[Rfam]
RNA sequence: GACAGCCUUGGGAGAGCGACCCAUGAGCUGGCAGAACCCUGUCUCCUGCGUGAGCGAUCGCGGGAGACAUCGUUCUGUGGAACAGAACCCGAAGAGACUUGGUGGGUUUGCAGCGAAGCUCUGUGUCAGGCCGAACUUGUACAUACAGUCACCGCAUCGCUCGGGAAGAGCAAGCUCUUCCCGCGGUUUCUGUGGUCCUU
Numbered sequence: 001g002a003c004a005g006c007c008u009u010g011g012g013a014g015a016g017c018g019a020c021c022c023a024u025g026a027g028c029u030g031g032c033a034g035a036a037c038c039c040u041g042u043c044u045c046c047u048g049c050g051u052g053a054g055c056g057a058u059c060g061c062g063g064g065a066g067a068c069a070u071c072g073u074u075c076u077g078u079g080g081a082a083c084a085g086a087a088c089c090c091g092a093a094g095a096g097a098c099u100u101g102g103u104g105g106g107u108u109u110g111c112a113g114c115g116a117a118g119c120u121c122u123g124u125g126u127c128a129g130g131c132c133g134a135a136c137u138u139g140u141a142c143a144u145a146c147a148g149u150c151a152c153c154g155c156a157u158c159g160c161u162c163g164g165g166a167a168g169a170g171c172a173a174g175c176u177c178u179u180c181c182c183g184c185g186g187u188u189u190c191u192g193u194g195g196u197c198c199u200u
Stems, first nucleotide, its partner, number of pairs: 003030004007025001009023004031078007041068010145193004151187005163182008
RNA: Cyano-2 RNA